[Rfam]
RNA sequence: UAAAAAACGAAUCUCCGAGCCGGGAUGAACCUAAAGAGCAAUCUAUGGACACCGGACAGGGUCUAGAACCCUCGGGGUAUACUUGGAAACGGGUAUGCCUUCACGUUUUGAAAAGGAGGUGGAUUAAAGCCAAC
Numbered sequence: 001u002a003a004a005a006a007a008c009g010a011a012u013c014u015c016c017g018a019g020c021c022g023g024g025a026u027g028a029a030c031c032u033a034a035a036g037a038g039c040a041a042u043c044u045a046u047g048g049a050c051a052c053c054g055g056a057c058a059g060g061g062u063c064u065a066g067a068a069c070c071c072u073c074g075g076g077g078u079a080u081a082c083u084u085g086g087a088a089a090c091g092g093g094u095a096u097g098c099c100u101u102c103a104c105g106u107u108u109u110g111a112a113a114a115g116g117a118g119g120u121g122g123a124u125u126a127a128a129g130c131c132a133a134c
Base pairs, nucleotide, nucleotide: 006125011120012119013118014117015116016115020055021054022053023052030048031047035044036043037042058072059071060070061069062068075100076099077098078097079096080095081094082093083092084091085090101111102110